RNA sequence: GGUUAUAACCCAGUAUCACAAGGCACUAAGGGAUUUUGACCCACACCACUGUGUUGCGUCAAAAGUCUUAAUUUUUGGGUCGCUUUCCCGCGGUAUCCGGGAAGGCAAA
Dot-bracket structure: ......((((..(..(........).)..))..)).(((((.(((......))).).))))......................(.((...(((...)).)...)).)..
Shown here is a 109-nucleotide RNA sequence from Oesophagostomum dentatum, a member of the family "SL2 RNA". The family is grouped with related families in Rfam's "SL clan". Rfam 15.1 lists 598 matches to the family in 38 species. The family's RNA type in Rfam is non-coding RNA gene. The source organism's lineage runs through Eukaryota, Bilateria, Rhabditida, Strongyloidea and Oesophagostomum. This family represents SL2 RNA. SL2 RNA is involved in trans splicing in lower eukaryotes.